[Rfam]
RNA sequence: CUGGUGACGUGAAAUAGCCUCUCCUAGGCUUUGUCUGUCUUUCUUCAGGAUUCAGACAUAGCCUGUUAGAGGUUAGUUUUAGUUGCCAUA
Numbered sequence: 001c002u003g004g005u006g007a008c009g010u011g012a013a014a015u016a017g018c019c020u021c022u023c024c025u026a027g028g029c030u031u032u033g034u035c036u037g038u039c040u041u042u043c044u045u046c047a048g049g050a051u052u053c054a055g056a057c058a059u060a061g062c063c064u065g066u067u068a069g070a071g072g073u074u075a076g077u078u079u080u081a082g083u084u085g086c087c088a089u090a
Stems, first nucleotide, its partner, number of pairs: 012078002015075006027063004032058005

This 90-nucleotide RNA sequence from Cloeon dipterum belongs to the Rfam family "mir-282 microRNA precursor family". For this family Rfam cites "Direct sequencing and expression analysis of a large number of miRNAs in Aedes aegypti and a multi-species survey of novel mosquito miRNAs" (Li et al., BMC Genomics, 2009). Rfam 15.1 lists 136 matches to the family in 128 species. The organism belongs to Cloeon, within Eukaryota. Pairs were carried over by alignment from the consensus structure, which was predicted with RNAalifold.